[Rfam]
RNA sequence: ACGACCUUACUUGGACAGGAUCUGUUCUAUAGUAAUCGUACCUCUGUAUCCUUGAUUUCUAAGGAGACAGGAAUCCCCACCUGGUGGAUGAAUCAUGACCGUGUGAUCAGAGCGUGAUUAACAAUCUGAUGGUCCCCUUGUGAUCAUCGUGACCGUAGAGGAUCGUUCUCAGUCAGUCUUCUCUGUCUGGGGUGGUCACACGGUUGUCUGACAGGUG
Numbered sequence: 001a002c003g004a005c006c007u008u009a010c011u012u013g014g015a016c017a018g019g020a021u022c023u024g025u026u027c028u029a030u031a032g033u034a035a036u037c038g039u040a041c042c043u044c045u046g047u048a049u050c051c052u053u054g055a056u057u058u059c060u061a062a063g064g065a066g067a068c069a070g071g072a073a074u075c076c077c078c079a080c081c082u083g084g085u086g087g088a089u090g091a092a093u094c095a096u097g098a099c100c101g102u103g104u105g106a107u108c109a110g111a112g113c114g115u116g117a118u119u120a121a122c123a124a125u126c127u128g129a130u131g132g133u134c135c136c137c138u139u140g141u142g143a144u145c146a147u148c149g150u151g152a153c154c155g156u157a158g159a160g161g162a163u164c165g166u167u168c169u170c171a172g173u174c175a176g177u178c179u180u181c182u183c184u185g186u187c188u189g190g191g192g193u194g195g196u197c198a199c200a201c202g203g204u205u206g207u208c209u210g211a212c213a214g215g216u217g
Stems, first nucleotide, its partner, number of pairs: 001039002003036001006032002013027006044070004049065006079216005098204012111167004121156002125152002127149008136140001169190004174185003
Dot-bracket structure: (((..((.....((((((...))))))...))...).))....((((.((((((.....)))))).))))........(((((..............((((((((((((.((((......((..((((((((((.(...).)))))))).))..)).......)))).((((.(((......))).))))..)))))))))))).......))))).
Rfam assigns this 217-nucleotide RNA sequence from Prunus avium to the family "Plant small nucleolar RNA U3". Lineage of the source: Eukaryota > Viridiplantae > Streptophyta > Embryophyta > Prunus. From the family's description: Small nucleolar RNAs (snoRNAs) are involved in the processing and modification of rRNA in the nucleolus. For this family Rfam cites "Nuclear retention elements of U3 small nucleolar RNA" (Speckmann et al., Mol Cell Biol, 1999). The base pairs follow the family's consensus structure, which is taken from published work. Clan: U3 clan. Rfam 15.1 lists 3,759 matches to the family in 258 species.